[Rfam]
RNA: Alphacoronavirus 5'UTR
Organism: Alphacoronavirus miniopteri
RNA sequence: UACUUAAAGAUAUAAUCUAUCUUCAGAUAGGUUGUACUCUUUCUAGACUGUUGUCUAAUCCCCUCAACUAAACGAAAUUUUUGCCAUACUUGUAUGGCGAAUUGAAAUUUCCCUAGGUUACCACCAUCCCGGCCCAAGUGUCGUGUCAUUCAGUGGUCCCUCGCACUGUUCCGUCAGUGCUUAAACCACUGUCUGACCUGCACGCAGUUCCGUCUGUGUGCAGUGUGGAUAGUACGUUCCGUCGUGCUUGAAACCGAUAACAGGCCGCUAUGGGUUCUAACCAUUUGACAUUGGCAU
Numbered sequence: 001u002a003c004u005u006a007a008a009g010a011u012a013u014a015a016u017c018u019a020u021c022u023u024c025a026g027a028u029a030g031g032u033u034g035u036a037c038u039c040u041u042u043c044u045a046g047a048c049u050g051u052u053g054u055c056u057a058a059u060c061c062c063c064u065c066a067a068c069u070a071a072a073c074g075a076a077a078u079u080u081u082u083g084c085c086a087u088a089c090u091u092g093u094a095u096g097g098c099g100a101a102u103u104g105a106a107a108u109u110u111c112c113c114u115a116g117g118u119u120a121c122c123a124c125c126a127u128c129c130c131g132g133c134c135c136a137a138g139u140g141u142c143g144u145g146u147c148a149u150u151c152a153g154u155g156g157u158c159c160c161u162c163g164c165a166c167u168g169u170u171c172c173g174u175c176a177g178u179g180c181u182u183a184a185a186c187c188a189c190u191g192u193c194u195g196a197c198c199u200g201c202a203c204g205c206a207g208u209u210c211c212g213u214c215u216g217u218g219u220g221c222a223g224u225g226u227g228g229a230u231a232g233u234a235c236g237u238u239c240c241g242u243c244g245u246g247c248u249u250g251a252a253a254c255c256g257a258u259a260a261c262a263g264g265c266c267g268c269u270a271u272g273g274g275u276u277c278u279a280a281c282c283a284u285u286u287g288a289c290a291u292u293g294g295c296a297u
Base pairs, nucleotide, nucleotide: 006042007041008040009039010038016031017030018029019028020027021026044057045056046055047054048053074111075110076109077108078107079106080105083098084097085096086095087094088093118280119279120278125272126271127270130267131266132265134264135263138261139259140258141257142256143255152190153189154188155187163180164179165178166177167176168175200221201220202219203218204217205216206215207214225254226253231248232247233246234245235244236243